[Rfam]
RNA sequence: GUGCGCCUGCGGAAGGUCAAGCGUCGCCCGCAAAACACGGCUUUGCAGGCAGCCGGACGGCGUACGGCCCCGUAUCAUAAGCAACUGCUUAUUUCAAAGCAUUUUC
Number, nucleotide and partner (000 for none) at each position: 001g000002u000003g000004c000005g050006c049007c048008u047009g046010c045011g044012g000013a000014a000015g069016g000017u067018c066019a000020a000021g063022c062023g061024u060025c059026g058027c000028c000029c056030g000031c000032a000033a000034a000035a000036c000037a000038c000039g054040g053041c052042u051043u000044u011045g010046c009047a008048g007049g006050c005051a042052g041053c040054c039055g000056g029057a000058c026059g025060g024061c023062g022063u021064a000065c000066g018067g017068c000069c015070c000071c000072g000073u000074a000075u000076c000077a092078u091079a090080a089081g088082c087083a000084a000085c000086u000087g082088c081089u080090u079091a078092u077093u000094u000095c000096a000097a000098a000099g000100c000101a000102u000103u000104u000105u000106c000
Rfam assigns this 106-nucleotide RNA to the family "RT-5 RNA". The family's consensus secondary structure is taken from published work. By type it is a small RNA. It is one of the family's seed sequences.